[Rfam]
RNA sequence: UUGCUUUGCACGAAUGUGGUUUUGUCAUGCUAAUAUAUUGCUUGGUGUGGCAUUAUUUCAAGUGAAGCUACAGAGAUAUGUUCCUCUCGCUAUCCGGUGAUACUCUUAUAGUGCAUUUGGACGUUGGGGAACUAUAUUG
Number, nucleotide and partner (000 for none) at each position: 001u070002u000003g068004c067005u000006u000007u064008g063009c062010a000011c000012g057013a000014a000015u055016g054017u000018g000019g000020u000021u000022u000023u052024g051025u050026c049027a048028u047029g046030c045031u044032a043033a000034u000035a000036u000037a000038u000039u000040g000041c000042u000043u032044g031045g030046u029047g028048u027049g026050g025051c024052a023053u000054u016055a015056u000057u012058u000059c000060a000061a000062g009063u008064g007065a000066a000067g004068c003069u000070a001071c000072a000073g000074a000075g000076a000077u000078a000079u000080g132081u131082u130083c129084c128085u127086c126087u000088c123089g122090c000091u000092a000093u121094c120095c119096g118097g117098u000099g000100a000101u000102a000103c000104u000105c000106u000107u000108a000109u000110a000111g000112u000113g000114c000115a000116u000117u097118u096119g095120g094121a093122c089123g088124u000125u000126g086127g085128g084129g083130a082131a081132c080133u000134a000135u000136a000137u000138u000139g000

This 139-nucleotide sequence from Handroanthus impetiginosus belongs to the Rfam family "Small nucleolar RNA snoR136". Gene Ontology terms of the family: RNA processing and nucleolus. The base pairs follow the family's consensus structure, which was predicted with mfold. On this family, see Chen and Wu, Nucleic Acids Res 2009: "Mining small RNA sequencing data: a new approach to identify small nucleolar RNAs in Arabidopsis".